Annotation: Small nucleolar RNA U6-53/MBII-28: a 112-nucleotide RNA from Owenia fusiformis. A reference for the family is Huttenhofer et al. (2001), "RNomics: an experimental approach that identifies 201 candidates for novel, small, non-messenger RNAs in mouse", EMBO J. It scores 56 bits against the family's covariance model. The base pairs follow the family's consensus structure.
RNA sequence: GUUCAAUGAUGACUUGCCAUGCUAAUACCGAAAAAUUCCACCAGGGGACCUUUGUCACUGGUGGUAGAUUUUUGUGAGUUAAAACUUGCUUCUCAAAUGAGAGCUGAGAACA
Number, nucleotide and partner (000 for none) at each position: 001g111002u110003u109004c108005a000006a000007u000008g000009a000010u000011g000012a000013c000014u000015u000016g000017c000018c000019a000020u000021g000022c000023u000024a000025a000026u000027a000028c000029c000030g000031a000032a000033a000034a000035a000036u000037u000038c000039c000040a000041c061042c060043a059044g058045g000046g000047g000048a000049c000050c000051u000052u000053u000054g000055u000056c000057a000058c044059u043060g042061g041062u000063g000064g000065u000066a000067g000068a000069u000070u000071u000072u000073u000074g000075u000076g000077a000078g000079u000080u000081a000082a000083a000084a000085c000086u000087u000088g000089c000090u000091u000092c000093u000094c000095a000096a000097a000098u000099g000100a000101g000102a000103g000104c000105u000106g000107a000108g004109a003110a002111c001112a000